[Rfam]
RNA sequence: UGUUGUCAGGGUCAAAAGGUCUGAAUCCACAUGAGCUCGCUCAUCAGUGGAUGAAAGACCUUGAGACCCGCCCCGAUAUGAGCAUAAAAGUGAGAUGACCAUCUCAGGAUAUGCGAAUAGCGGGCAGAAUUGUGCGCGUGCGAAGCACAGAACAAUUCUCAGACAUCA
Numbered sequence: 001u002g003u004u005g006u007c008a009g010g011g012u013c014a015a016a017a018g019g020u021c022u023g024a025a026u027c028c029a030c031a032u033g034a035g036c037u038c039g040c041u042c043a044u045c046a047g048u049g050g051a052u053g054a055a056a057g058a059c060c061u062u063g064a065g066a067c068c069c070g071c072c073c074c075g076a077u078a079u080g081a082g083c084a085u086a087a088a089a090g091u092g093a094g095a096u097g098a099c100c101a102u103c104u105c106a107g108g109a110u111a112u113g114c115g116a117a118u119a120g121c122g123g124g125c126a127g128a129a130u131u132g133u134g135c136g137c138g139u140g141c142g143a144a145g146c147a148c149a150g151a152a153c154a155a156u157u158c159u160c161a162g163a164c165a166u167c168a
Base pairs, nucleotide, nucleotide: 001168002167004165005164006163007162010068011067012066013065016062017061018060019059020058021057022056026051027050028049029048030047031044032043033042034041035040072124073123074122075121077119078118079117082114083113084112085111091106092105093104094103095102096101127158128157129156130155131154132153133152138148139147140146141145

Background
This 168-nucleotide sequence from Oscillospiraceae bacterium Marseille-Q3528 belongs to the Rfam family "Clostridiales-1 RNA". By type it is a small RNA.